[Rfam]
RNA sequence: AGGAGGAGGCUCCGAAAUGACGCGAAGCGGCAUUUAUCGCAUGGAGCCGACGAUAUGCCGCCGAGGCGAAGCUAGGGGGCGAUACCAAGG
Numbered sequence: 001a002g003g004a005g006g007a008g009g010c011u012c013c014g015a016a017a018u019g020a021c022g023c024g025a026a027g028c029g030g031c032a033u034u035u036a037u038c039g040c041a042u043g044g045a046g047c048c049g050a051c052g053a054u055a056u057g058c059c060g061c062c063g064a065g066g067c068g069a070a071g072c073u074a075g076g077g078g079g080c081g082a083u084a085c086c087a088a089g090g
Stems, first nucleotide, its partner, number of pairs: 008048006017033003021029002057080003061076002066072002
Notes
GA-cis RNA: a 90-nucleotide RNA sequence.